[Rfam]
RNA sequence: UACAACUGAUUCGGCAUGAAGGGCGGUCGGCUAGUCUCCCUGACGGGAGGUGAUGCCCAUGACAGUAUUCGAAGCACUAACGCUAAUGAUUAGCUUUGGUACGCUUAUCGUGAUGCUGUUAUCGUUUCAUAAACGGAAAUAGACCGCCCCAUAGCAAGGUAUCGGUCUAUUUCAUGUCCGUCUUUGCAGCCGACCGUUCUUACAUGCGGCCGUUGUGCAGGGAUCGUGUUGGUAGCACGAUCC
Numbered sequence: 001u002a003c004a005a006c007u008g009a010u011u012c013g014g015c016a017u018g019a020a021g022g023g024c025g026g027u028c029g030g031c032u033a034g035u036c037u038c039c040c041u042g043a044c045g046g047g048a049g050g051u052g053a054u055g056c057c058c059a060u061g062a063c064a065g066u067a068u069u070c071g072a073a074g075c076a077c078u079a080a081c082g083c084u085a086a087u088g089a090u091u092a093g094c095u096u097u098g099g100u101a102c103g104c105u106u107a108u109c110g111u112g113a114u115g116c117u118g119u120u121a122u123c124g125u126u127u128c129a130u131a132a133a134c135g136g137a138a139a140u141a142g143a144c145c146g147c148c149c150c151a152u153a154g155c156a157a158g159g160u161a162u163c164g165g166u167c168u169a170u171u172u173c174a175u176g177u178c179c180g181u182c183u184u185u186g187c188a189g190c191c192g193a194c195c196g197u198u199c200u201u202a203c204a205u206g207c208g209g210c211c212g213u214u215g216u217g218c219a220g221g222g223a224u225c226g227u228g229u230u231g232g233u234a235g236c237a238c239g240a241u242c243c
Stems, first nucleotide, its partner, number of pairs: 001217006008210001011193005017153001021149003025144001027142001032053001034051001036049005061123002064120004075088002099114002194209004221243010
Annotation:
This 243-nucleotide RNA sequence from Paenibacillus sp. KS1 belongs to the Rfam family "BsrG". Rfam classes the family as a small RNA. The family's consensus secondary structure was predicted with WAR. For this family Rfam cites "Novel small RNA-encoding genes in the intergenic regions of Bacillus subtilis" (Saito et al., Gene, 2008). About the family: bsrE, bsrG and bsrH pair through intermolecular interactions with antisense sRNAs. They form type I toxin/antitoxin system that includes an mRNA encoding for a short, toxic peptide (bsrE, bsrG and bsrH) and an antitoxin that is comprised of an antisense RNA. bsrG encodes a 39-amino-acid toxin, and the 180 nucleotide antisense sRNA called SR4 acts as the antitoxin (they overlap by 123 nucleotides). Gene Ontology terms of the family: autolysis and toxin activity.